[Rfam]
RNA sequence: UGUGUGGAGGUAAGGAACUACGCCGUGUUGUCCAGUUCGGUAAAUCCUCACCUCUCACUGU
Numbered sequence: 001u002g003u004g005u006g007g008a009g010g011u012a013a014g015g016a017a018c019u020a021c022g023c024c025g026u027g028u029u030g031u032c033c034a035g036u037u038c039g040g041u042a043a044a045u046c047c048u049c050a051c052c053u054c055u056c057a058c059u060g061u
Base pairs, nucleotide, nucleotide: 002058003057004056006055007054008053009052010051011050014048015047017045022041023040024039
Shown here is a 61-nucleotide RNA sequence from Vombatus ursinus, a member of the family "mir-7398 microRNA precursor family". Rfam links the family to the GO terms RISC complex and miRNA-mediated post-transcriptional gene silencing.